[Rfam]
RNA sequence: UAUCGACGCUGCGUCGAUUAUCUGGAAAUAAGGCAUCGUCCCCUUGCCAUUACCAGAUGCAACAGCCUCCAUCCCCCUCUCAAGGCUGUUGCGCAGUAGCAGUGAUAAGGUCGCUGUGGUUCCCCUCUCCACAGCGGCCUAAUUUU
Numbered sequence: 001u002a003u004c005g006a007c008g009c010u011g012c013g014u015c016g017a018u019u020a021u022c023u024g025g026a027a028a029u030a031a032g033g034c035a036u037c038g039u040c041c042c043c044u045u046g047c048c049a050u051u052a053c054c055a056g057a058u059g060c061a062a063c064a065g066c067c068u069c070c071a072u073c074c075c076c077c078u079c080u081c082a083a084g085g086c087u088g089u090u091g092c093g094c095a096g097u098a099g100c101a102g103u104g105a106u107a108a109g110g111u112c113g114c115u116g117u118g119g120u121u122c123c124c125c126u127c128u129c130c131a132c133a134g135c136g137g138c139c140u141a142a143u144u145u146u
Stems, first nucleotide, its partner, number of pairs: 021057005027051001032048003059092009106142001108140012
The family of this 146-nucleotide RNA sequence from Attibartonella tamiae is "Alphaproteobacterial sRNA ar7". It scores 72 bits against the family's covariance model. By type it is a small RNA.